RNA sequence: AGUGAACACGGACGCAUCGAUCCUCGGGACAUCGCAACAACGGUCGCCCACCUGACGUGAAGGAGCGCAAGCUCCCGACGCCGGUGGUCCCGAGGGGAGCGAGUGGCGAGACCGGCCGUGCACGCG
Numbered sequence: 001a002g003u004g005a006a007c008a009c010g011g012a013c014g015c016a017u018c019g020a021u022c023c024u025c026g027g028g029a030c031a032u033c034g035c036a037a038c039a040a041c042g043g044u045c046g047c048c049c050a051c052c053u054g055a056c057g058u059g060a061a062g063g064a065g066c067g068c069a070a071g072c073u074c075c076c077g078a079c080g081c082c083g084g085u086g087g088u089c090c091c092g093a094g095g096g097g098a099g100c101g102a103g104u105g106g107c108g109a110g111a112c113c114g115g116c117c118g119u120g121c122a123c124g125c126g
Base pairs, nucleotide, nucleotide: 002125003124004123007120008119009118010117011116013101014100015099022095023094024093025092026091027090028089029088042113043112044109045108046107047106048105

Overview: A member of the RNA family "c-di-GMP-II-GAG riboswitch aptamer", 126 nucleotides long. Rfam's curators put it in the seed alignment. The family is grouped with related families in Rfam's "c-di-GMP_II riboswitch clan". Gene Ontology terms of the family: cyclic-di-GMP binding and regulation of gene expression.